Source information:
A member of the RNA family "Small nucleolar RNA ZL8" from Oryctolagus cuniculus, 83 nucleotides long. A search with the family's covariance model found it, with a score of 73 bits. Lineage of the source: Eukaryota > Teleostomi > Euteleostomi > Amniota > Oryctolagus. The family's RNA type in Rfam is C/D-box small nucleolar RNA.

RNA sequence: ACACAGUGGUCGUGAUGACUUGGUUGGACUAGAGUCUCUGAGCUUUCUCUGAGGAUCUUUGAGACCACCUGAUCCACUCUGUG
Numbered sequence: 001a002c003a004c005a006g007u008g009g010u011c012g013u014g015a016u017g018a019c020u021u022g023g024u025u026g027g028a029c030u031a032g033a034g035u036c037u038c039u040g041a042g043c044u045u046u047c048u049c050u051g052a053g054g055a056u057c058u059u060u061g062a063g064a065c066c067a068c069c070u071g072a073u074c075c076a077c078u079c080u081g082u083g
Stems, first nucleotide, its partner, number of pairs: 003082004007076003018073001020071001022069003026065001031058003035054004040049003